A member of the RNA family "Small nucleolar RNA SNORA84" from Pan troglodytes, 132 nucleotides long. The family's RNA type in Rfam is H/ACA-box small nucleolar RNA. A reference for the family is Marker et al. (2002), "Experimental RNomics: identification of 140 candidates for small non-messenger RNAs in the plant Arabidopsis thaliana", Curr Biol.

RNA sequence: CCCCUGUGGUGCUGGAUGCUGUUGUGCAUGAACAGCUCUCCAGUGGAUUCGAUGGGCCCCAGCAAUCUUGUGAUUUAUGCAGGGAGGGUGCUUCUCCUCAGCAGCUGCCAUAGCCCGGUCGCUGGUACAUGA
Numbered sequence: 001c002c003c004c005u006g007u008g009g010u011g012c013u014g015g016a017u018g019c020u021g022u023u024g025u026g027c028a029u030g031a032a033c034a035g036c037u038c039u040c041c042a043g044u045g046g047a048u049u050c051g052a053u054g055g056g057c058c059c060c061a062g063c064a065a066u067c068u069u070g071u072g073a074u075u076u077a078u079g080c081a082g083g084g085a086g087g088g089u090g091c092u093u094c095u096c097c098u099c100a101g102c103a104g105c106u107g108c109c110a111u112a113g114c115c116c117g118g119u120c121g122c123u124g125g126u127a128c129a130u131g132a
Stems, first nucleotide, its partner, number of pairs: 002056003008048001010046001011044006018036005068124001070122006079114002081111001083109002086106002089103004